[Rfam]
RNA sequence: AACGGACUUCAGGGCGGGGUGAAACUCCCCACCGGUGGUAAAAGCCUAGCUUGAGCCCACGAGCGCCUUAGUCUCUACUUUUAUGAGUAGUGGUUAAGGGACAGCAGAUCUGGUGUGAAUCCAGAGCCGACGGUUAUAGUCCGGAUGAAAGAAGUGACAC
Numbered sequence: 001a002a003c004g005g006a007c008u009u010c011a012g013g014g015c016g017g018g019g020u021g022a023a024a025c026u027c028c029c030c031a032c033c034g035g036u037g038g039u040a041a042a043a044g045c046c047u048a049g050c051u052u053g054a055g056c057c058c059a060c061g062a063g064c065g066c067c068u069u070a071g072u073c074u075c076u077a078c079u080u081u082u083a084u085g086a087g088u089a090g091u092g093g094u095u096a097a098g099g100g101a102c103a104g105c106a107g108a109u110c111u112g113g114u115g116u117g118a119a120u121c122c123a124g125a126g127c128c129g130a131c132g133g134u135u136a137u138a139g140u141c142c143g144g145a146u147g148a149a150a151g152a153a154g155u156g157a158c159a160c
Stems, first nucleotide, its partner, number of pairs: 006155005017029003031140002033129002035060004055127002063105002109125005131143003
Dot-bracket structure: .....(((((......(((.......))).[[((((((................[[))))..((.......................................))...(((((.......)))))]])).(((.....]]))).......))))).....